[Rfam]
RNA sequence: UUUCCCUGUGAUGCUUCAUUUUUCAAACCAUGCGAAUACUGAUUACACGAUGACUGAUCUUCAACUUGUCACUGAGGGAACU
Numbered sequence: 001u002u003u004c005c006c007u008g009u010g011a012u013g014c015u016u017c018a019u020u021u022u023u024c025a026a027a028c029c030a031u032g033c034g035a036a037u038a039c040u041g042a043u044u045a046c047a048c049g050a051u052g053a054c055u056g057a058u059c060u061u062c063a064a065c066u067u068g069u070c071a072c073u074g075a076g077g078g079a080a081c082u
Base pairs, nucleotide, nucleotide: 002080003079004078005077006076007075
Dot-bracket structure: .((((((...................................................................))))))..
Small nucleolar RNA snoR53Y: an 82-nucleotide sequence from Cucurbita maxima. Its family is annotated with nucleolus and RNA processing in the Gene Ontology. The literature on the family includes a 2001 paper in RNA by Brown et al., "Multiple snoRNA gene clusters from Arabidopsis". It is annotated as a C/D-box small nucleolar RNA. Taxonomically the source falls in Cucurbita (Eukaryota, Magnoliopsida, Mesangiospermae, Gunneridae).